[Rfam]
A member of the RNA family "Small nucleolar RNA SNORD99" from Salmo trutta, 71 nucleotides long.
For this family Rfam cites "Purified box C/D snoRNPs are able to reproduce site-specific 2'-O-methylation of target RNA in vitro" (Galardi et al., Mol Cell Biol, 2002).
The source organism's lineage runs through Eukaryota, Chordata, Vertebrata, Protacanthopterygii and Salmo.
The family's consensus secondary structure was predicted with RNAalifold.
Rfam classes the family as a C/D-box small nucleolar RNA.
Nucleotides: 071
Stems, first nucleotide, its partner, number of pairs: 001070005
Number, partner (000 for none) and nucleotide at each position: 001070u002069c003068u004067g005066a006000u007000c008000a009000a010000u011000g012000a013000u014000u015000g016000a017000u018000a019000u020000c021000u022000u023000u024000a025000a026000a027000u028000g029000u030000g031000a032000c033000u034000g035000u036000u037000g038000g039000a040000u041000g042000a043000a044000a045000c046000a047000u048000g049000c050000g051000g052000a053000u054000a055000u056000g057000g058000g059000a060000c061000u062000g063000a064000g065000a066005u067004c068003a069002g070001a071000a